[Rfam]
Shown here is a 118-nucleotide RNA from Microbacter margulisiae, a member of the family "Group II catalytic intron D1-D4-2".
RNA sequence: GGCUGAUGAACCACCAGUGUCGCUGUUCAGGCGGAGGCAUUAAACCACCAAAUGGUGCUAAGGUAAAGAGCCUUGGUGCUGAGCGAUUUGGAAAAGUUAUACCAUGAGUAUAACAGGU
Numbered sequence: 001g002g003c004u005g006a007u008g009a010a011c012c013a014c015c016a017g018u019g020u021c022g023c024u025g026u027u028c029a030g031g032c033g034g035a036g037g038c039a040u041u042a043a044a045c046c047a048c049c050a051a052a053u054g055g056u057g058c059u060a061a062g063g064u065a066a067a068g069a070g071c072c073u074u075g076g077u078g079c080u081g082a083g084c085g086a087u088u089u090g091g092a093a094a095a096g097u098u099a100u101a102c103c104a105u106g107a108g109u110a111u112a113a114c115a116g117g118u
Stems, first nucleotide, its partner, number of pairs: 001015002005011001016041006023034004046117001048091006054080002057077003061073004096114006
Pairs were carried over by alignment from the consensus structure.
From the family's description: Group II introns are found in rRNA, tRNA and mRNA of organelles in fungi, plants and protists, and also in mRNA in bacteria.